[Rfam]
RNA sequence: CGACCCGGUGCGCCGAGAGGUAAAGAAAGACCAAGUAACAGGAGCUAAAACCAACCCAACCAAACCCCUCCGGCUCCCCGUAGCUCGGACGGGUGAAUCUGCCAACUGGAGUGGAAUUCGGGUCUGUUGCCGGGCAUAUGCUCGGCCCGACAACCACAGACAUGAGACGGCCCCCGCCGGGACUGGCAUCCCGAACGAGGGCCUGACCAACGAGGAAGAUCACCACUUCCCU
Numbered sequence: 001c002g003a004c005c006c007g008g009u010g011c012g013c014c015g016a017g018a019g020g021u022a023a024a025g026a027a028a029g030a031c032c033a034a035g036u037a038a039c040a041g042g043a044g045c046u047a048a049a050a051c052c053a054a055c056c057c058a059a060c061c062a063a064a065c066c067c068c069u070c071c072g073g074c075u076c077c078c079c080g081u082a083g084c085u086c087g088g089a090c091g092g093g094u095g096a097a098u099c100u101g102c103c104a105a106c107u108g109g110a111g112u113g114g115a116a117u118u119c120g121g122g123u124c125u126g127u128u129g130c131c132g133g134g135c136a137u138a139u140g141c142u143c144g145g146c147c148c149g150a151c152a153a154c155c156a157c158a159g160a161c162a163u164g165a166g167a168c169g170g171c172c173c174c175c176g177c178c179g180g181g182a183c184u185g186g187c188a189u190c191c192c193g194a195a196c197g198a199g200g201g202c203c204u205g206a207c208c209a210a211c212g213a214g215g216a217a218g219a220u221c222a223c224c225a226c227u228u229c230c231c232u
Stems, first nucleotide, its partner, number of pairs: 007211001009209002081096001083094004112144003169203005175197002179192004214230005
Streptomyces sRNA 4677: a 232-nucleotide RNA from Streptomyces sp. ISL-86.
Located in the intergenic region between anti-sigma factor SCO4677 gene and a putative regulatory protein gene SCO4676. scr4677 expression requires the SCO4677 activity and scr4677 sRNA itself seem to affect the levels of the SCO4676-associated transcripts.
Rfam 15.1 lists 563 matches to the family in 285 species.
The base pairs follow the family's consensus structure.
The organism belongs to Streptomyces, within Bacteria.
The literature on the family includes a 2014 paper in PLoS One by Hindra et al., "Complex intra-operonic dynamics mediated by a small RNA in Streptomyces coelicolor".
It is annotated as a small RNA.